[Rfam]
RNA sequence: AGGAGGAACAGCCACAGUGGCGGGGACGGCUCUGGAGCCCUGGAUUCAGCCCCACAGUAACUCCGGGGCUCUCCGUCUGCAGGGUCUGGAGGCUCAGGGUGGGG
Numbered sequence: 001a002g003g004a005g006g007a008a009c010a011g012c013c014a015c016a017g018u019g020g021c022g023g024g025g026a027c028g029g030c031u032c033u034g035g036a037g038c039c040c041u042g043g044a045u046u047c048a049g050c051c052c053c054a055c056a057g058u059a060a061c062u063c064c065g066g067g068g069c070u071c072u073c074c075g076u077c078u079g080c081a082g083g084g085u086c087u088g089g090a091g092g093c094u095c096a097g098g099g100u101g102g103g104g
Stems, first nucleotide, its partner, number of pairs: 003095003009088003012084002019077007028070009040057003

Annotation: This 104-nucleotide RNA from Vulpes vulpes belongs to the Rfam family "mir-8834 microRNA precursor family". Rfam links the family to the GO terms RISC complex and miRNA-mediated post-transcriptional gene silencing. The organism belongs to Vulpes, within Eukaryota.